[Rfam]
RNA sequence: AAGGCGAUAUCCGAAAAGCCUGUAUUGAAUAGAGUAGGGG
Numbered sequence: 001a002a003g004g005c006g007a008u009a010u011c012c013g014a015a016a017a018g019c020c021u022g023u024a025u026u027g028a029a030u031a032g033a034g035u036a037g038g039g040g
Base pairs, nucleotide, nucleotide: 002021003020004019005018010039011038012037
RNA: DUF805b RNA
Organism: Tenacibaculum sp. Bg11-29